[Rfam]
RNA sequence: CGGGGAUACCGCAGGCGAGGGAACUCGGCAAAUUGGCCCCGUAACUUCGGGAGAAGGGGUGCCUGCGGUCCUAGCGAGGAGCUGGGACUGCAGGUCGCAGUGACAAGGGGGUCCCGACUGUUUAAUAAAAACAUAGGUGGCCGCUAGUCCGUAAGGAUUUGUACGGCCGCUGAAUCCUGGCCAGUGGCGGUACCUAAAACCCGGGUACAACCGGGCUAAGGGCCGCUAAACGCCGGGGGUAACUCUGACCCUCUUAAGGUAGCCAAAUGCCUUGUCGGGUAAGUUCCGACGUGCAUGAAUGGAUCAACGAGGGCCCCACUGUCCCCGCCUGCAACCCGGUGAACCCACGUAAGGUGGACGAACAGUCCACCUA
Numbered sequence: 001c002g003g004g005g006a007u008a009c010c011g012c013a014g015g016c017g018a019g020g021g022a023a024c025u026c027g028g029c030a031a032a033u034u035g036g037c038c039c040c041g042u043a044a045c046u047u048c049g050g051g052a053g054a055a056g057g058g059g060u061g062c063c064u065g066c067g068g069u070c071c072u073a074g075c076g077a078g079g080a081g082c083u084g085g086g087a088c089u090g091c092a093g094g095u096c097g098c099a100g101u102g103a104c105a106a107g108g109g110g111g112u113c114c115c116g117a118c119u120g121u122u123u124a125a126u127a128a129a130a131a132c133a134u135a136g137g138u139g140g141c142c143g144c145u146a147g148u149c150c151g152u153a154a155g156g157a158u159u160u161g162u163a164c165g166g167c168c169g170c171u172g173a174a175u176c177c178u179g180g181c182c183a184g185u186g187g188c189g190g191u192a193c194c195u196a197a198a199a200c201c202c203g204g205g206u207a208c209a210a211c212c213g214g215g216c217u218a219a220g221g222g223c224c225g226c227u228a229a230a231c232g233c234c235g236g237g238g239g240u241a242a243c244u245c246u247g248a249c250c251c252u253c254u255u256a257a258g259g260u261a262g263c264c265a266a267a268u269g270c271c272u273u274g275u276c277g278g279g280u281a282a283g284u285u286c287c288g289a290c291g292u293g294c295a296u297g298a299a300u301g302g303a304u305c306a307a308c309g310a311g312g313g314c315c316c317c318a319c320u321g322u323c324c325c326c327g328c329c330u331g332c333a334a335c336c337c338g339g340u341g342a343a344c345c346c347a348c349g350u351a352a353g354g355u356g357g358a359c360g361a362a363c364a365g366u367c368c369a370c371c372u373a
Stems, first nucleotide, its partner, number of pairs: 001338004011332007019324003036060005045050001061095015096100001108317007115309002119133003136171008144161001147158004174304004179234003184231002186227005193222003200215005235253006254258001274290006353371005
RNA: Archaeal large subunit ribosomal RNA, nucleotides 1814 to 2186
Organism: uncultured Nitrososphaerota archaeon